[Rfam]
RNA sequence: CAUCGGCGCCCGGGCCCCUCUGGCAGGACGUAAGCAUGCGACUGUGAUGUCGGAGCCGAUGC
Numbered sequence: 001c002a003u004c005g006g007c008g009c010c011c012g013g014g015c016c017c018c019u020c021u022g023g024c025a026g027g028a029c030g031u032a033a034g035c036a037u038g039c040g041a042c043u044g045u046g047a048u049g050u051c052g053g054a055g056c057c058g059a060u061g062c
Stems, first nucleotide, its partner, number of pairs: 006056002010053004023045004029040003